[Rfam]
RNA: small nucleolar RNA snoR134
RNA sequence: AUGCACGGUGCACCCCGGGCAUCUCUGAGAGAUCCAUUGAAGUAGGAAGCCCCAAUGCUCGUGCUAGAUUUAGCUGCCAUUCAGUGUUGCAGUUUUGUUGUUUAACAACUGAACUGUGUCAAAGAGAUGGCUAAAUUG
Number, nucleotide and partner (000 for none) at each position: 001a000002u000003g064004c063005a062006c061007g060008g059009u000010g058011c057012a000013c000014c000015c000016c000017g052018g051019g050020c049021a000022u046023c045024u000025c042026u041027g000028a000029g000030a000031g000032a000033u000034c000035c000036a000037u000038u000039g000040a000041a026042g025043u000044a000045g023046g022047a000048a000049g020050c019051c018052c017053c000054a000055a000056u000057g011058c010059u008060c007061g006062u005063g004064c003065u000066a000067g000068a000069u000070u000071u000072a000073g000074c000075u000076g131077c130078c129079a128080u127081u126082c000083a000084g000085u121086g120087u000088u118089g117090c116091a115092g114093u113094u000095u000096u000097g109098u108099u107100g000101u000102u000103u000104a000105a000106c000107a099108a098109c097110u000111g000112a000113a093114c092115u091116g090117u089118g088119u000120c086121a085122a000123a000124g000125a000126g081127a080128u079129g078130g077131c076132u000133a000134a000135a000136u000137u000138g000